[Rfam]
RNA sequence: AGUCCAAUAGGAGUCUUAAUUUAUUUCUUAACCUUUGCUACGUGAGGGUCUUGGGUGUUUUUAAAUCAUUGCUUCUUCUCAGGCGU
Numbered sequence: 001a002g003u004c005c006a007a008u009a010g011g012a013g014u015c016u017u018a019a020u021u022u023a024u025u026u027c028u029u030a031a032c033c034u035u036u037g038c039u040a041c042g043u044g045a046g047g048g049u050c051u052u053g054g055g056u057g058u059u060u061u062u063a064a065a066u067c068a069u070u071g072c073u074u075c076u077u078c079u080c081a082g083g084c085g086u
Stems, first nucleotide, its partner, number of pairs: 009079004016064004025055002031049008
Shown here is an 86-nucleotide RNA from Tupaia belangeri, a member of the family "Stem loopII regulatory element in POLB". The sequence is in the family's curated seed alignment. Rfam links the family to the GO term regulation of RNA stability. Pairs were carried over by alignment from the consensus structure, which is taken from published work.